[Rfam]
RNA sequence: UGGCCCUUUUUGGCACUAGCACAUUUUUGCUUUGUUCCUUGUUGUUUGAGCAAUCAUGUGUAGUGCCAAUAUGGGCUG
Numbered sequence: 001u002g003g004c005c006c007u008u009u010u011u012g013g014c015a016c017u018a019g020c021a022c023a024u025u026u027u028u029g030c031u032u033u034g035u036u037c038c039u040u041g042u043u044g045u046u047u048g049a050g051c052a053a054u055c056a057u058g059u060g061u062a063g064u065g066c067c068a069a070u071a072u073g074g075g076c077u078g
Stems, first nucleotide, its partner, number of pairs: 004075003008071001010069008019061006027053006
Background: This 78-nucleotide RNA from Gambusia affinis belongs to the Rfam family "mir-96 microRNA precursor family". The literature on the family includes a 2003 paper in Dev Cell by Houbaviy et al., "Embryonic stem cell-specific MicroRNAs". Rfam links the family to the GO terms miRNA-mediated post-transcriptional gene silencing and RISC complex. Rfam 15.1 lists 691 matches to the family in 590 species. The source organism's lineage runs through Eukaryota, Opisthokonta, Neopterygii, Cyprinodontoidei and Gambusia. Pairs were carried over by alignment from the consensus structure, which was predicted with RNAalifold.